[Rfam]
RNA sequence: UCGGUCCCGGUUCACGACAGGCAACCCGCCCGUCGACCCGGUGCC
Numbered sequence: 001u002c003g004g005u006c007c008c009g010g011u012u013c014a015c016g017a018c019a020g021g022c023a024a025c026c027c028g029c030c031c032g033u034c035g036a037c038c039c040g041g042u043g044c045c
Base pairs, nucleotide, nucleotide: 003045004044005043007041008040009039010038015035016034017033018032020030021029022028
A member of the RNA family "L31-Actinobacteria ribosomal protein leader" from Streptomyces antioxidans, 45 nucleotides long. Clan: Ribosomal Protein L31 Leader clan. On this family, see Eckert and Weinberg, BMC Microbiol 2020: "Discovery of 20 novel ribosomal leader candidates in bacteria and archaea". By type it is a cis-regulatory leader.